[Rfam]
RNA sequence: AAGCCUCGAAGGUGAUGAUGCUUUAACGCUUGUCUCCUUCACCUCCCUGUUGGACUUGCCGGGCCUUAGUGCCCGGCAGUUUUU
Numbered sequence: 001a002a003g004c005c006u007c008g009a010a011g012g013u014g015a016u017g018a019u020g021c022u023u024u025a026a027c028g029c030u031u032g033u034c035u036c037c038u039u040c041a042c043c044u045c046c047c048u049g050u051u052g053g054a055c056u057u058g059c060c061g062g063g064c065c066u067u068a069g070u071g072c073c074c075g076g077c078a079g080u081u082u083u084u
Stems, first nucleotide, its partner, number of pairs: 008040005014034005057078008

A member of the RNA family "Singlet oxygen resistance RNA X" from Yoonia ponticola, 84 nucleotides long.
Rfam 15.1 lists 528 matches to the family in 356 species.
By type it is a small RNA.
A search with the family's covariance model found it, with a score of 51 bits.
Its family is annotated with response to photooxidative stress in the Gene Ontology.
For this family Rfam cites "Photooxidative stress-induced and abundant small RNAs in Rhodobacter sphaeroides" (Berghoff et al., Mol Microbiol, 2009).